Record summary: The record is a 368-nucleotide sequence from Coniochaeta ligniaria, which matches "Nuclear RNase P" in Rfam. Rfam describes the family as follows. Ribonuclease P (RNase P) is a ubiquitous endoribonuclease, found in archaea, bacteria and eukarya as well as chloroplasts and mitochondria. It is annotated as a ribozyme. NCBI's taxonomy places the organism under Eukaryota, leotiomyceta, Sordariomycetidae, Coniochaetales, Coniochaeta ligniaria.
RNA sequence: UCCUCUUCAACGCUGCGUUUCUAUGCUACAAACGGAGAGUCUGCGCAAGCAGUCUCUCAUUCUACCUUUGGCAUAUGAGAAAUUCGGAGAAUCAGCUUCACUCUUCAGCUCGCCCAUUUCACACUCCGGUGUGCGGUGGUGUCGACGCUCUGCCGGUAACGGUCCAGCGCGAUCUCGCGUCCUGUAAUUGGCAUCAGAAAAGCAGGGCCUGGGCUGGACACUCGCGCUCGUUCGUGGGUGCUCCAGUUCCAGGUUCCUCUGGGAGGGCCAUUACGAAGCUUGUGGUCAAACACUUGAGUGCGAUACGCAGCGUGCGGUUCUUCCCUGUGGGGAACCGUACAAUUCGAUUCCGAUUACUCUGUUGAGGA
Numbered sequence: 001u002c003c004u005c006u007u008c009a010a011c012g013c014u015g016c017g018u019u020u021c022u023a024u025g026c027u028a029c030a031a032a033c034g035g036a037g038a039g040u041c042u043g044c045g046c047a048a049g050c051a052g053u054c055u056c057u058c059a060u061u062c063u064a065c066c067u068u069u070g071g072c073a074u075a076u077g078a079g080a081a082a083u084u085c086g087g088a089g090a091a092u093c094a095g096c097u098u099c100a101c102u103c104u105u106c107a108g109c110u111c112g113c114c115c116a117u118u119u120c121a122c123a124c125u126c127c128g129g130u131g132u133g134c135g136g137u138g139g140u141g142u143c144g145a146c147g148c149u150c151u152g153c154c155g156g157u158a159a160c161g162g163u164c165c166a167g168c169g170c171g172a173u174c175u176c177g178c179g180u181c182c183u184g185u186a187a188u189u190g191g192c193a194u195c196a197g198a199a200a201a202g203c204a205g206g207g208c209c210u211g212g213g214c215u216g217g218a219c220a221c222u223c224g225c226g227c228u229c230g231u232u233c234g235u236g237g238g239u240g241c242u243c244c245a246g247u248u249c250c251a252g253g254u255u256c257c258u259c260u261g262g263g264a265g266g267g268c269c270a271u272u273a274c275g276a277a278g279c280u281u282g283u284g285g286u287c288a289a290a291c292a293c294u295u296g297a298g299u300g301c302g303a304u305a306c307g308c309a310g311c312g313u314g315c316g317g318u319u320c321u322u323c324c325c326u327g328u329g330g331g332g333a334a335c336c337g338u339a340c341a342a343u344u345c346g347a348u349u350c351c352g353a354u355u356a357c358u359c360u361g362u363u364g365a366g367g368a
Stems, first nucleotide, its partner, number of pairs: 001368004008361002012311007022075004035058005085352005094280004152163004166180001187272001189270004205258003312340012